[Rfam]
RNA sequence: CGUUGUCUCUGACAACAGCCAAUGUCCCGGUAAUCUGAGAGGGACGCCUUCGGGUGAUUGCCAGCCAAAAUCGUCAUGACCUGAGAGACAAUGCCUUCGGGCGGUAACGUUGUUUAGCCUUUGAAAACAGCGGUCGCUUUUGCGAUGAAGGUACAC
Numbered sequence: 001c002g003u004u005g006u007c008u009c010u011g012a013c014a015a016c017a018g019c020c021a022a023u024g025u026c027c028c029g030g031u032a033a034u035c036u037g038a039g040a041g042g043g044a045c046g047c048c049u050u051c052g053g054g055u056g057a058u059u060g061c062c063a064g065c066c067a068a069a070a071u072c073g074u075c076a077u078g079a080c081c082u083g084a085g086a087g088a089c090a091a092u093g094c095c096u097u098c099g100g101g102c103g104g105u106a107a108c109g110u111u112g113u114u115u116a117g118c119c120u121u122u123g124a125a126a127a128c129a130g131c132g133g134u135c136g137c138u139u140u141u142g143c144g145a146u147g148a149a150g151g152u153a154c155a156c
Base pairs, nucleotide, nucleotide: 002016003015004014005013006012007011024045025044026043027042028041030061031060032059033058034057035056046055047054048053070092071091073089074088079105080104081103093102094101095100109131110130111129112128113127117152118151119150120149121148133146134145135144136143137142

This 156-nucleotide RNA sequence from Salmonella enterica belongs to the Rfam family "STAXI RNA". A search with the family's covariance model found it, with a score of 112 bits.